[Rfam]
RNA sequence: AUGCAUCUAUUUGACAGACCUGGAGCAGUUACUGUCUGCUACCAUGGUUCCCACUUGAGAUGCAAGAAAAAAUUGUCCUCGCGCUUUCUGUCUGUCUCAUUUUGGCAGCCAAGAUUGAAUGAGGGAGUACAAGU
Number, nucleotide and partner (000 for none) at each position: 001a000002u064003g063004c062005a061006u060007c059008u058009a000010u000011u000012u053013g052014a000015c000016a000017g049018a048019c047020c046021u000022g000023g000024a040025g039026c038027a037028g036029u000030u000031a000032c000033u000034g000035u000036c028037u027038g026039c025040u024041a000042c000043c000044a000045u000046g020047g019048u018049u017050c000051c000052c013053a012054c000055u000056u000057g000058a008059g007060a006061u005062g004063c003064a002065a000066g000067a000068a000069a000070a000071a000072a000073u000074u000075g000076u126077c125078c124079u123080c000081g000082c000083g000084c117085u000086u000087u114088c113089u112090g000091u000092c108093u107094g106095u105096c104097u000098c000099a000100u000101u000102u000103u000104g096105g095106c094107a093108g092109c000110c000111a000112a089113g088114a087115u000116u000117g084118a000119a000120u000121g000122a000123g079124g078125g077126a076127g000128u000129a000130c000131a000132a000133g000134u000
RNA: Small nucleolar RNA SNORA31
Organism: Galemys pyrenaicus